A member of the RNA family "sraA" from Serratia symbiotica, 94 nucleotides long.
Rfam classes the family as a small RNA.
A reference for the family is Argaman et al. (2001), "Novel small RNA-encoding genes in the intergenic regions of Escherichia coli", Curr Biol.
The organism belongs to Serratia symbiotica, within Bacteria.
RNA sequence: CUGGUUGUGAGUAUAUGGGGACGAAUGGCUGACAUUCAACAGCCAGAAUACAGGAAAGAGAAAUGGGGGAUAAGAUCCCCCAUUUUACUGUCUA
Numbered sequence: 001c002u003g004g005u006u007g008u009g010a011g012u013a014u015a016u017g018g019g020g021a022c023g024a025a026u027g028g029c030u031g032a033c034a035u036u037c038a039a040c041a042g043c044c045a046g047a048a049u050a051c052a053g054g055a056a057a058g059a060g061a062a063a064u065g066g067g068g069g070a071u072a073a074g075a076u077c078c079c080c081c082a083u084u085u086u087a088c089u090g091u092c093u094a
Base pairs, nucleotide, nucleotide: 008038010036011035012034016032018030019029061085062084063083064082065081066080067079068078069077070076071075